RNA sequence: CCCGCAAAACGUUCUAUCGCUACCCGCGCUUAGUAGGUGGAGGAAAGUCCGGGCAACACAGAGCAUCCUGCUUCCUAACGGGAAGGCGCCCGCAGCGGGCGACAGCAAGUGCCACAGAAAAUAUACCGCCCGCAAGGGUAAGGGUGAAAACGUGAGGUAAGAGCUCACGGCUUUUCCGGGCGACCGGGAUCGCGGUAAACCUCAGGAGUUGAAAAACCAAAUAGGUUCUGAAAGCGGAGCUGCUCGCUCCCGCCUCCCUACGGGGACGUCAGAAUGGGUAGGUUGAUUGAACCUGCCGGCAACGGCAGGGCCAGAUUAAUGAUAGAAAUUCCUGCAAAGGAACACAGAACCCGGCUUACAGGUUUGCAGCUGUU
Numbered sequence: 001c002c003c004g005c006a007a008a009a010c011g012u013u014c015u016a017u018c019g020c021u022a023c024c025c026g027c028g029c030u031u032a033g034u035a036g037g038u039g040g041a042g043g044a045a046a047g048u049c050c051g052g053g054c055a056a057c058a059c060a061g062a063g064c065a066u067c068c069u070g071c072u073u074c075c076u077a078a079c080g081g082g083a084a085g086g087c088g089c090c091c092g093c094a095g096c097g098g099g100c101g102a103c104a105g106c107a108a109g110u111g112c113c114a115c116a117g118a119a120a121a122u123a124u125a126c127c128g129c130c131c132g133c134a135a136g137g138g139u140a141a142g143g144g145u146g147a148a149a150a151c152g153u154g155a156g157g158u159a160a161g162a163g164c165u166c167a168c169g170g171c172u173u174u175u176c177c178g179g180g181c182g183a184c185c186g187g188g189a190u191c192g193c194g195g196u197a198a199a200c201c202u203c204a205g206g207a208g209u210u211g212a213a214a215a216a217c218c219a220a221a222u223a224g225g226u227u228c229u230g231a232a233a234g235c236g237g238a239g240c241u242g243c244u245c246g247c248u249c250c251c252g253c254c255u256c257c258c259u260a261c262g263g264g265g266a267c268g269u270c271a272g273a274a275u276g277g278g279u280a281g282g283u284u285g286a287u288u289g290a291a292c293c294u295g296c297c298g299g300c301a302a303c304g305g306c307a308g309g310g311c312c313a314g315a316u317u318a319a320u321g322a323u324a325g326a327a328a329u330u331c332c333u334g335c336a337a338a339g340g341a342a343c344a345c346a347g348a349a350c351c352c353g354g355c356u357u358a359c360a361g362g363u364u365u366g367c368a369g370c371u372g373u374u
Stems, first nucleotide, its partner, number of pairs: 002369001004367005010361001011359001012327007020040005026034002045357003049354005054211004063261001066207005071085005086103001087101004104202002109200002111196003126143002128139004151169006174189006215284004225275006254268001257265002292309007

Bacterial RNase P class A: a 374-nucleotide RNA sequence from Mucilaginibacter gilvus.
The family's RNA type in Rfam is ribozyme.
NCBI's taxonomy places the organism under Bacteria, Pseudomonadati, Bacteroidota, Sphingobacteriia, Mucilaginibacter.